[Rfam]
A member of the RNA family "Small nucleolar RNA Z168/Z174" from Oryza punctata, 73 nucleotides long. Pairs were carried over by alignment from the consensus structure, which was predicted with PFOLD.
RNA sequence: GGGCCGAUGAUGCUAAACAUGUUCCUAUGGUCUCUGAGGACUCUCUAAGCAUAUUUCCCAAGAGCUGAGGCCC
Numbered sequence: 001g002g003g004c005c006g007a008u009g010a011u012g013c014u015a016a017a018c019a020u021g022u023u024c025c026u027a028u029g030g031u032c033u034c035u036g037a038g039g040a041c042u043c044u045c046u047a048a049g050c051a052u053a054u055u056u057c058c059c060a061a062g063a064g065c066u067g068a069g070g071c072c073c
Stems, first nucleotide, its partner, number of pairs: 002072004
Dot-bracket structure: .((((...............................................................)))).

The family's RNA type in Rfam is C/D-box small nucleolar RNA.